[Rfam]
RNA sequence: CCGCUCAGCAGGCGACGUUGCGGGCCCUGGGCUCCAGGAGAGCUUCCUUUAGCCGACCUUCCUGCUGGCUGCUCUGUGACCGCUUCGCGGCUCUGCUCACUUGGCCGAAGUGCCUGCUGCCGGGCGCGGGCCUCAGGUAUUGGUGGU
Numbered sequence: 001c002c003g004c005u006c007a008g009c010a011g012g013c014g015a016c017g018u019u020g021c022g023g024g025c026c027c028u029g030g031g032c033u034c035c036a037g038g039a040g041a042g043c044u045u046c047c048u049u050u051a052g053c054c055g056a057c058c059u060u061c062c063u064g065c066u067g068g069c070u071g072c073u074c075u076g077u078g079a080c081c082g083c084u085u086c087g088c089g090g091c092u093c094u095g096c097u098c099a100c101u102u103g104g105c106c107g108a109a110g111u112g113c114c115u116g117c118u119g120c121c122g123g124g125c126g127c128g129g130g131c132c133u134c135a136g137g138u139a140u141u142g143g144u145g146g147u
Base pairs, nucleotide, nucleotide: 013017034090035089038086039085041084042083043082045079046078048076051073052072054071055070057068058067103132104131105130106129110127111126112125113124114123115122116121
Source information:
A member of the RNA family "Human acetyl-coA cholesterol acyltransferase mRNA" from Nomascus leucogenys, 147 nucleotides long. Taxonomically the source falls in Nomascus (Eukaryota, Teleostomi, Dipnotetrapodomorpha, Primates). Its family is annotated with regulation of translational initiation in the Gene Ontology. The family's consensus secondary structure is taken from published work. A reference for the family is Chen et al. (2008), "RNA secondary structures located in the interchromosomal region of human ACAT1 chimeric mRNA are required to produce the 56-kDa isoform", Cell Res.